[Rfam]
RNA sequence: UAAUUUUGCACCCGUCUUACAAAAGUUGUAUGACAUACAUAAAAAUCAUUUAAAACAAUAUUGGAAUG
Number, nucleotide and partner (000 for none) at each position: 001u000002a000003a000004u000005u000006u000007u000008g000009c000010a000011c000012c000013c000014g034015u033016c032017u000018u030019a029020c028021a027022a000023a000024a000025g000026u000027u021028g020029u019030a018031u000032g016033a015034c014035a000036u000037a000038c000039a000040u000041a000042a000043a000044a000045a000046u000047c000048a000049u000050u000051u000052a000053a000054a000055a000056c000057a000058a000059u000060a000061u000062u000063g000064g000065a000066a000067u000068g000
The record is a 68-nucleotide RNA sequence from Flavobacterium sp. F52, which matches "S15-Flavobacteria ribosomal protein leader" in Rfam. The sequence is in the family's curated seed alignment. Lineage of the source: Bacteria > Pseudomonadati > Bacteroidota > Flavobacteriaceae > Flavobacterium. For this family Rfam cites "Discovery of 20 novel ribosomal leader candidates in bacteria and archaea" (Eckert and Weinberg, BMC Microbiol, 2020). It is annotated as a cis-regulatory leader.